Annotation
Shown here is a 220-nucleotide RNA sequence from Vineibacter terrae, a member of the family "Group II catalytic intron D1-D4-6". NCBI's taxonomy places the organism under Bacteria, Pseudomonadota, Alphaproteobacteria, Hyphomicrobiales, Vineibacter. Its family is annotated with Group II intron splicing in the Gene Ontology. It scores 99 bits against the family's covariance model. Rfam's curators write: Group II introns are found in rRNA, tRNA and mRNA of organelles in fungi, plants and protists, and also in mRNA in bacteria. Rfam 15.1 lists 1,617 matches to the family in 661 species. For this family Rfam cites "The ins and outs of group II introns" (Bonen and Vogel, Trends Genet, 2001).

RNA sequence: CGACUCCCGCGCGGUAGAGGCUGAGAGCCGGCCAGCCGGAAGCGAGUCUUGCCUGGGUACCUGCGAGGGUACUCUUGAAGCGUAGACAGCGUGUGCUGAAGCCCCGUGGCAAGCCCCGAAAUCGCUCUGAUCGCCGGAGCCUUCGUGGUCCUCGCUGCGGGGGCAGCAUCGUCGCUGCGUGAUUGGCCAGGAGCGACGGUCCGACCGGGGUCCUGGAGCG
Number, nucleotide and partner (000 for none) at each position: 001c000002g000003a000004c000005u000006c000007c000008c000009g000010c000011g000012c038013g037014g036015u035016a000017g000018a000019g033020g032021c031022u030023g000024a000025g187026a000027g000028c186029c000030g022031g021032c020033c019034a000035g015036c014037c013038g012039g000040a092041a000042g090043c089044g000045a000046g087047u086048c085049u084050u082051g081052c077053c000054u000055g074056g073057g072058u071059a070060c069061c068062u067063g000064c000065g000066a000067g062068g061069g060070u059071a058072c057073u056074c055075u000076u000077g052078a000079a000080g000081c051082g050083u000084a049085g048086a047087c046088a000089g043090c042091g000092u040093g000094u000095g000096c000097u000098g000099a000100a000101g000102c000103c000104c000105c000106g000107u000108g000109g000110c000111a000112a000113g211114c210115c209116c208117c207118g206119a000120a000121a000122u000123c000124g000125c000126u000127c000128u000129g000130a000131u000132c000133g205134c000135c203136g202137g201138a200139g164140c163141c162142u000143u000144c159145g158146u157147g156148g000149u000150c000151c000152u000153c000154g000155c000156u147157g146158c145159g144160g000161g000162g141163g140164c139165a000166g000167c000168a000169u199170c198171g197172u196173c195174g194175c193176u192177g000178c190179g000180u000181g000182a000183u000184u000185g000186g028187c025188c000189a000190g178191g000192a176193g175194c174195g173196a172197c171198g170199g169200u138201c137202c136203g135204a000205c133206c118207g117208g116209g115210g114211u113212c000213c000214u000215g000216g000217a000218g000219c000220g000